RNA sequence: UACUUUUGCACACGCAUACGAAAAACGUAUCUACAUAAUAAUCAUUUAAAUAAUAUUAAAAUG
Numbered sequence: 001u002a003c004u005u006u007u008g009c010a011c012a013c014g015c016a017u018a019c020g021a022a023a024a025a026c027g028u029a030u031c032u033a034c035a036u037a038a039u040a041a042u043c044a045u046u047u048a049a050a051u052a053a054u055a056u057u058a059a060a061a062u063g
Stems, first nucleotide, its partner, number of pairs: 014031001016030004

The family of this 63-nucleotide RNA sequence is "S15-Flavobacteria ribosomal protein leader". It is annotated as a cis-regulatory leader. Rfam's curators put it in the seed alignment. A reference for the family is Eckert and Weinberg (2020), "Discovery of 20 novel ribosomal leader candidates in bacteria and archaea", BMC Microbiol.